[Rfam]
Rfam assigns this 82-nucleotide sequence from Hevea brasiliensis to the family "Small nucleolar RNA snoR27". The family's RNA type in Rfam is C/D-box small nucleolar RNA. A reference for the family is Brown et al. (2001), "Multiple snoRNA gene clusters from Arabidopsis", RNA. The family's consensus secondary structure was predicted with WAR.
RNA sequence: UCUGGAUCAAUGAUGUUACUGAUAUUCUGCGUUAUCUAUGUGAAAAUUAUUUUGAAUUGAAGCUAACAUUCUGAGAUCCUGA
Dot-bracket structure: ((.((((....................................................................)))).))
Numbered sequence: 001u002c003u004g005g006a007u008c009a010a011u012g013a014u015g016u017u018a019c020u021g022a023u024a025u026u027c028u029g030c031g032u033u034a035u036c037u038a039u040g041u042g043a044a045a046a047u048u049a050u051u052u053u054g055a056a057u058u059g060a061a062g063c064u065a066a067c068a069u070u071c072u073g074a075g076a077u078c079c080u081g082a
Stems, first nucleotide, its partner, number of pairs: 001082002004079004